[Rfam]
RNA sequence: GUACUCCCUCCAUCCCAUAAUAUAAGAAUGUUUUUGACGCUAGUGUAGUGCCAAAAGCAUUCUUAUAUUAUGGGACAGAGGGAGUAG
Number, nucleotide and partner (000 for none) at each position: 001g000002u000003a085004c084005u083006c000007c081008c080009u079010c078011c000012a000013u075014c074015c073016c072017a071018u000019a069020a068021u067022a066023u065024a064025a063026g062027a061028a060029u059030g058031u057032u056033u055034u054035u053036g052037a000038c050039g049040c048041u047042a000043g000044u000045g000046u000047a041048g040049u039050g038051c000052c036053a035054a034055a033056a032057g031058c030059a029060u028061u027062c026063u025064u024065a023066u022067a021068u020069u019070a000071u017072g016073g015074g014075a013076c000077a000078g010079a009080g008081g007082g000083a005084g004085u003086a000087g000
RNA: MIR1120/MIR1122 microRNA precursor family
Organism: Triticum aestivum